mir-27 microRNA precursor family: a 75-nucleotide RNA sequence from Suricata suricatta. Rfam links the family to the GO terms miRNA-mediated post-transcriptional gene silencing and RISC complex. Pairs were carried over by alignment from the consensus structure, which was predicted with RNAalifold. On this family, see Yao et al., J Virol 2008: "MicroRNA profile of Marek's disease virus-transformed T-cell line MSB-1: predominance of virus-encoded microRNAs". The match comes from Rfam's covariance-model search (69 bits). The source organism's lineage runs through Eukaryota, Opisthokonta, Craniata, Tetrapoda and Suricata.
[Rfam]
RNA sequence: CUGGGGAGCAGGGCUUAGCUGCUGUGAGCAGUGCACACCCAGGCGUGUUCACAGUGGCUAAGUUCCGCCCCCCGG
Numbered sequence: 001c002u003g004g005g006g007a008g009c010a011g012g013g014c015u016u017a018g019c020u021g022c023u024g025u026g027a028g029c030a031g032u033g034c035a036c037a038c039c040c041a042g043g044c045g046u047g048u049u050c051a052c053a054g055u056g057g058c059u060a061a062g063u064u065c066c067g068c069c070c071c072c073c074g075g
Base pairs, nucleotide, nucleotide: 011065012064013063014062015061016060017059018058019057020056024052025051026050027049028048029047030046